[Rfam]
RNA sequence: CUUUUAUUAGACAUUGACUGUCAUGUGUUACGCGUUUAUUGAACAUUAAUUUCGUGUACUUAAUUAAUGUUAACCUCCAAUAAAAUCGUGAUAUGUGAAAGUCAACGUCC
Numbered sequence: 001c002u003u004u005u006a007u008u009a010g011a012c013a014u015u016g017a018c019u020g021u022c023a024u025g026u027g028u029u030a031c032g033c034g035u036u037u038a039u040u041g042a043a044c045a046u047u048a049a050u051u052u053c054g055u056g057u058a059c060u061u062a063a064u065u066a067a068u069g070u071u072a073a074c075c076u077c078c079a080a081u082a083a084a085a086u087c088g089u090g091a092u093a094u095g096u097g098a099a100a101g102u103c104a105a106c107g108u109c110c
Stems, first nucleotide, its partner, number of pairs: 021098003025094002029090003035084002038081003

MIR1520 microRNA precursor family: a 110-nucleotide RNA from Glycine max. Pairs were carried over by alignment from the consensus structure, which was predicted with RNAalifold. NCBI's taxonomy places the organism under Eukaryota, Euphyllophyta, Gunneridae, fabids, Glycine subgen. Soja. Rfam links the family to the GO terms miRNA-mediated post-transcriptional gene silencing and RISC complex. Its Rfam clan is "MIR1520 microRNA precursor clan".